[Rfam]
RNA sequence: AAACAAUAUCUAUCAAUGUUGUUACUUUUACAUUUCAUUCUCUAUACUUAUUCUCUACACCUCCCUUUUAUCGGAGAAAAACAAAUUAGAAGAGAAAUAAGUGGAAUUUUUCUCUUAUGUUUUUCAAUCAAAGGGAGUUGUGGAGGAAAAGUUUAGAUAUUGAAGUGU
Number, nucleotide and partner (000 for none) at each position: 001a000002a000003a000004c000005a000006a000007u000008a000009u000010c000011u000012a000013u000014c000015a000016a000017u000018g000019u000020u000021g000022u000023u000024a000025c000026u000027u000028u000029u000030a000031c000032a000033u000034u000035u000036c000037a000038u000039u000040c000041u000042c000043u000044a000045u000046a000047c000048u000049u000050a000051u147052u146053c145054u144055c143056u142057a141058c140059a139060c000061c137062u136063c135064c134065c133066u132067u131068u130069u000070a128071u127072c000073g000074g125075a124076g123077a122078a121079a120080a000081a000082c000083a000084a113085a000086u000087u000088a109089g108090a107091a000092g000093a000094g000095a000096a000097a000098u000099a000100a000101g000102u000103g000104g000105a000106a000107u090108u089109u088110u000111u000112c000113u084114c000115u000116u000117a000118u000119g000120u079121u078122u077123u076124u075125c074126a000127a071128u070129c000130a068131a067132a066133g065134g064135g063136a062137g061138u000139u059140g058141u057142g056143g055144a054145g053146g052147a051148a000149a000150a000151g000152u000153u000154u000155a000156g000157a000158u000159a000160u000161u000162g000163a000164a000165g000166u000167g000168u000
A member of the RNA family "MIR2119 microRNA precursor family" from Abrus precatorius, 168 nucleotides long.
Its family is annotated with miRNA-mediated post-transcriptional gene silencing and RISC complex in the Gene Ontology.
A search with the family's covariance model found it, with a score of 108 bits.
The source organism's lineage runs through Eukaryota, Streptophyta, Fabaceae, Papilionoideae and Abrus.